Background:
Bacterial RNase P class A: a 396-nucleotide sequence from Martelella mediterranea. It scores 303 bits against the family's covariance model. Gene Ontology terms of the family: ribonuclease P activity, tRNA processing and dimeric ribonuclease P complex. It is annotated as a ribozyme. NCBI's taxonomy places the organism under Bacteria, Alphaproteobacteria, Hyphomicrobiales, Aurantimonadaceae, Martelella mediterranea. Pairs were carried over by alignment from the consensus structure, which is taken from published work.
RNA sequence: CCAGUUGGCCGGGCGGCCGCGCUUUGCCAAUGCCGAAAGGCGGCAGGGUGAGGAAAGUCCGGGCUCCACGGAAACACGGUGCCGGAGAAAGUCCGGCGGGGGCGACCCCAGAGACAGUGCCACAGAAAGCAAACCGCCCGGCCUUGGCCGGGUAAGGGUGAAAGGGUGGGGCAAGAGCCCACCGCGCCGGCGGCAACGCAUGGCGGCACGGUAAACCUCACCGGGAGCAAAACCGAAUAGGGAUGACGCGGCGCUUGACGCCAGCCUGUUUCCAGGCCGGUCAUCCGGGUGGGUUGCGAGAGGCAGCGCGCAAGUGCUGUCCCAGAUGAAUGGCCGCCACGUUUUGCGGGCAACCGCAAAGCCAUACAGAACCCGGCUUACAGGCCAACUGGUUAU
Numbered sequence: 001c002c003a004g005u006u007g008g009c010c011g012g013g014c015g016g017c018c019g020c021g022c023u024u025u026g027c028c029a030a031u032g033c034c035g036a037a038a039g040g041c042g043g044c045a046g047g048g049u050g051a052g053g054a055a056a057g058u059c060c061g062g063g064c065u066c067c068a069c070g071g072a073a074a075c076a077c078g079g080u081g082c083c084g085g086a087g088a089a090a091g092u093c094c095g096g097c098g099g100g101g102g103c104g105a106c107c108c109c110a111g112a113g114a115c116a117g118u119g120c121c122a123c124a125g126a127a128a129g130c131a132a133a134c135c136g137c138c139c140g141g142c143c144u145u146g147g148c149c150g151g152g153u154a155a156g157g158g159u160g161a162a163a164g165g166g167u168g169g170g171g172c173a174a175g176a177g178c179c180c181a182c183c184g185c186g187c188c189g190g191c192g193g194c195a196a197c198g199c200a201u202g203g204c205g206g207c208a209c210g211g212u213a214a215a216c217c218u219c220a221c222c223g224g225g226a227g228c229a230a231a232a233c234c235g236a237a238u239a240g241g242g243a244u245g246a247c248g249c250g251g252c253g254c255u256u257g258a259c260g261c262c263a264g265c266c267u268g269u270u271u272c273c274a275g276g277c278c279g280g281u282c283a284u285c286c287g288g289g290u291g292g293g294u295u296g297c298g299a300g301a302g303g304c305a306g307c308g309c310g311c312a313a314g315u316g317c318u319g320u321c322c323c324a325g326a327u328g329a330a331u332g333g334c335c336g337c338c339a340c341g342u343u344u345u346g347c348g349g350g351c352a353a354c355c356g357c358a359a360a361g362c363c364a365u366a367c368a369g370a371a372c373c374c375g376g377c378u379u380a381c382a383g384g385c386c387a388a389c390u391g392g393u394u395a396u
Base pairs, nucleotide, nucleotide: 001392002391003390004389005388006387007386008385009384010383011381012338013337014336015335016334017333018332020050021049022048023047024046025045026044027043028042055379056378057377059376060375061374062373063372064227065226066225067224073271074270077223078222079221080220081219082096083095084094085093086092097111098109099108100107101106112218113217117216118215119212120211121210134157135156136153137152138151139150140149141148142147165183166182167181168180169179170178184207185205186204187203188202189201190199191198192197231295232294233293234292241286242285243284244283245282246281264277265276266275267274302321303320304319305318306317307316308315309314